[Rfam]
RNA: msiK RNA
RNA sequence: GCCCGAACCCCGCUCACGACGGAUCGUCCGGCACGUACCUGCCGGUGAAGGGAAGACA
Numbered sequence: 001g002c003c004c005g006a007a008c009c010c011c012g013c014u015c016a017c018g019a020c021g022g023a024u025c026g027u028c029c030g031g032c033a034c035g036u037a038c039c040u041g042c043c044g045g046u047g048a049a050g051g052g053a054a055g056a057c058a
Base pairs, nucleotide, nucleotide: 010052011051014048015047016046028045029044030043031042032041033040